[Rfam]
RNA sequence: CCCCGGGGACGACCCCAGGGGAAACGCGAUUUUUGCGGGACGACCCGC
Numbered sequence: 001c002c003c004c005g006g007g008g009a010c011g012a013c014c015c016c017a018g019g020g021g022a023a024a025c026g027c028g029a030u031u032u033u034u035g036c037g038g039g040a041c042g043a044c045c046c047g048c
Stems, first nucleotide, its partner, number of pairs: 001020003005016004035048005
This 48-nucleotide RNA sequence from Klebsiella indica belongs to the Rfam family "Guanidine-II riboswitch aptamer (mini-ykkC)".